[Rfam]
RNA: c-di-GMP-I riboswitch aptamer
RNA sequence: AAUAGUUAAGGGCAAAUCUACUGAAAGGUAGAGACGCAAAGCUACAGGGGCUAAGUUCUGAGGAAUAUGCUUGCCAGUUACCGAU
Numbered sequence: 001a002a003u004a005g006u007u008a009a010g011g012g013c014a015a016a017u018c019u020a021c022u023g024a025a026a027g028g029u030a031g032a033g034a035c036g037c038a039a040a041g042c043u044a045c046a047g048g049g050g051c052u053a054a055g056u057u058c059u060g061a062g063g064a065a066u067a068u069g070c071u072u073g074c075c076a077g078u079u080a081c082c083g084a085u
Stems, first nucleotide, its partner, number of pairs: 012037002017032006040079004047075002049071003056065003